[Rfam]
RNA sequence: CUUCGAAAUCAAAAUAAACCUCAUAUAAUCUUGGAAAUAAGGUCCAUAAGUUUCUACCUAGCAACCAUAAAUUAGCUAGACUAUGAGAAAAAAGUGUAAAUAC
Numbered sequence: 001c002u003u004c005g006a007a008a009u010c011a012a013a014a015u016a017a018a019c020c021u022c023a024u025a026u027a028a029u030c031u032u033g034g035a036a037a038u039a040a041g042g043u044c045c046a047u048a049a050g051u052u053u054c055u056a057c058c059u060a061g062c063a064a065c066c067a068u069a070a071a072u073u074a075g076c077u078a079g080a081c082u083a084u085g086a087g088a089a090a091a092a093a094g095u096g097u098a099a100a101u102a103c
Stems, first nucleotide, its partner, number of pairs: 020087006029049001032046004058079005063073002
Purine riboswitch aptamer: a 103-nucleotide RNA. Pairs were carried over by alignment from the consensus structure, which is taken from published work.